[Rfam]
RNA sequence: UUUGAAAAAGGCAAACCAAUCGUGAGAUUGGGACGCAAAGCUAUGGGUCUUCAAUGAAGAAUGCCAGGCUGCCAUAU
Numbered sequence: 001u002u003u004g005a006a007a008a009a010g011g012c013a014a015a016c017c018a019a020u021c022g023u024g025a026g027a028u029u030g031g032g033a034c035g036c037a038a039a040g041c042u043a044u045g046g047g048u049c050u051u052c053a054a055u056g057a058a059g060a061a062u063g064c065c066a067g068g069c070u071g072c073c074a075u076a077u
Stems, first nucleotide, its partner, number of pairs: 003074002011036002016031006034063001039070004044066003048060002
The record is a 77-nucleotide RNA from Candidatus Brocadia sinica, which matches "c-di-GMP-I-GGC riboswitch aptamer" in Rfam. Its Rfam clan is "c-di-GMP_I riboswitch clan". NCBI's taxonomy places the organism under Bacteria, Pseudomonadati, Candidatus Brocadiales, Candidatus Brocadia, Candidatus Brocadia sinica. The family's consensus secondary structure is taken from published work. A search with the family's covariance model found it, with a score of 68 bits.